[Rfam]
RNA sequence: GAACUCUUACAGCAAUUAAAUCUUCACUCAUUGAAAAAACCUCGAGUUCUG
Numbered sequence: 001g002a003a004c005u006c007u008u009a010c011a012g013c014a015a016u017u018a019a020a021u022c023u024u025c026a027c028u029c030a031u032u033g034a035a036a037a038a039a040c041c042u043c044g045a046g047u048u049c050u051g
Stems, first nucleotide, its partner, number of pairs: 001049005
The record is a 51-nucleotide RNA from Tieghemostelium lacteum, which matches "Class I RNA from Dictyostelium" in Rfam. On this family, see Sucgang et al., Genome Biol 2011: "Comparative genomics of the social amoebae Dictyostelium discoideum and Dictyostelium purpureum". The family's consensus secondary structure is taken from published work. By type it is a non-coding RNA gene. Dictyostelium Class I RNA was first reported for Aspegren et al. 2004 in Dictyostelium discoideum. Sucgang et al. 2011 identify putative homologs of Class I RNA in D. discoideum and D. purpureum.